[Rfam]
RNA sequence: UUCCGUUCUCAGGGCGGGGUGCAAUUCCCCACCGGCGGUAUCGGGCGCAUGCCCGGAGCCCGCGAGCGCUUCCGGCUCCCGCCGGAAGGUCAGCAGAUCCGGUGAGAUGCCGGAGCCGACGGUAUAGUCCGGAUGGAAGAGAACACGC
Numbered sequence: 001u002u003c004c005g006u007u008c009u010c011a012g013g014g015c016g017g018g019g020u021g022c023a024a025u026u027c028c029c030c031a032c033c034g035g036c037g038g039u040a041u042c043g044g045g046c047g048c049a050u051g052c053c054c055g056g057a058g059c060c061c062g063c064g065a066g067c068g069c070u071u072c073c074g075g076c077u078c079c080c081g082c083c084g085g086a087a088g089g090u091c092a093g094c095a096g097a098u099c100c101g102g103u104g105a106g107a108u109g110c111c112g113g114a115g116c117c118g119a120c121g122g123u124a125u126a127g128u129c130c131g132g133a134u135g136g137a138a139g140a141g142a143a144c145a146c147g148c
Stems, first nucleotide, its partner, number of pairs: 005144006017029003031128002033118002035063004058116002066094002098114005120131003
RNA: FMN riboswitch aptamer (RFN element)